[Rfam]
RNA sequence: CCUCGGCAGUGCGACUGGCGCAGCCGGAAUCGACCGGCAAGGAGCACGUUCGAAGACAUCGUCCGCCUGGGUGUCGAUC
Dot-bracket structure: ..((((..((((..(([[[[...((((......))))..))..))))..))))..(((((...]]]]..))))).....